This 294-nucleotide RNA sequence from Coregonus sp. 'balchen' belongs to the Rfam family "Small nucleolar RNA snR191".
The literature on the family includes a 2003 paper in RNA by Badis et al., "A snoRNA that guides the two most conserved pseudouridine modifications within rRNA confers a growth advantage in yeast".
The organism belongs to Coregonus, within Eukaryota.
Its Rfam clan is "SNORA74 clan".
[Rfam]
RNA sequence: UCCCCCCCCUUUUUUUUGGGGGGGUUUUUUUUUAAUUCAAAGGGGGAUUAAAAAAGGGGGGGGGGCCCGGGGGGGGUUUUUUUUUUAAAGGUUUAAAAAAAUUUUUUAAAAAACCCCCCAAUUUUGGGGGGGCCCCCCCCCUUUUUUUUUCCCCCAAAAAGGGAAAAAAAAAAAGGGGGGGGGGGCCGGUUUUUUGGGGAAAAACCCCCAUUUUUUGGGGGGGGAAAAAUUUGGUUUUUUUUUGGGUUUUUUUUUUUAAAAGGGGAAAAUUUUUUUUUUUAAAACCCCCUUUUU
Numbered sequence: 001u002c003c004c005c006c007c008c009c010u011u012u013u014u015u016u017u018g019g020g021g022g023g024g025u026u027u028u029u030u031u032u033u034a035a036u037u038c039a040a041a042g043g044g045g046g047a048u049u050a051a052a053a054a055a056g057g058g059g060g061g062g063g064g065g066c067c068c069g070g071g072g073g074g075g076g077u078u079u080u081u082u083u084u085u086u087a088a089a090g091g092u093u094u095a096a097a098a099a100a101a102u103u104u105u106u107u108a109a110a111a112a113a114c115c116c117c118c119c120a121a122u123u124u125u126g127g128g129g130g131g132g133c134c135c136c137c138c139c140c141c142u143u144u145u146u147u148u149u150u151c152c153c154c155c156a157a158a159a160a161g162g163g164a165a166a167a168a169a170a171a172a173a174a175g176g177g178g179g180g181g182g183g184g185g186c187c188g189g190u191u192u193u194u195u196g197g198g199g200a201a202a203a204a205c206c207c208c209c210a211u212u213u214u215u216u217g218g219g220g221g222g223g224g225a226a227a228a229a230u231u232u233g234g235u236u237u238u239u240u241u242u243u244g245g246g247u248u249u250u251u252u253u254u255u256u257u258a259a260a261a262g263g264g265g266a267a268a269a270u271u272u273u274u275u276u277u278u279u280u281a282a283a284a285c286c287c288c289c290u291u292u293u294u
Base pairs, nucleotide, nucleotide: 003132004131005130006129007128019119020118021117022116023115024114025113026112027111028110030098031097032096033095034094133219134218135217138179139178140177141176142175143174144173145172147167148166149165150164151163152162153161181209182208183207184206185205190200191199192198193197221289222288223287224286244270249261250260251259252258